[Rfam]
RNA sequence: ACCAUCCUUUUCUUAGGGUUGUGCUACUGUCCAGUGAGUGUGUACUGAGGGCAGUACUACUAACGCCCACACGACAUUCCCCUAUCAACUAGAGCUUGGCUUUACCUCGGUGCAAUUUUGGAAAA
Numbered sequence: 001a002c003c004a005u006c007c008u009u010u011u012c013u014u015a016g017g018g019u020u021g022u023g024c025u026a027c028u029g030u031c032c033a034g035u036g037a038g039u040g041u042g043u044a045c046u047g048a049g050g051g052c053a054g055u056a057c058u059a060c061u062a063a064c065g066c067c068c069a070c071a072c073g074a075c076a077u078u079c080c081c082c083u084a085u086c087a088a089c090u091a092g093a094g095c096u097u098g099g100c101u102u103u104a105c106c107u108c109g110g111u112g113c114a115a116u117u118u119u120g121g122a123a124a125a
Base pairs, nucleotide, nucleotide: 006018007017008016009015021060022059023058026055027054028053029052030051031050032049038046083112084111085110086109090104091103092102093101094100095099
U4atac minor spliceosomal RNA: a 125-nucleotide RNA sequence from Propithecus coquereli. The literature on the family includes a 2005 paper in RNA by Lorkovic et al., "Evolutionary conservation of minor U12-type spliceosome between plants and humans". It scores 85 bits against the family's covariance model. Its family is annotated with mRNA 5'-splice site recognition, spliceosomal tri-snRNP complex assembly and pre-mRNA 5'-splice site binding in the Gene Ontology. Clan: U4 clan. The family has 61 seed sequences and 1,648 matches in Rfam 15.1.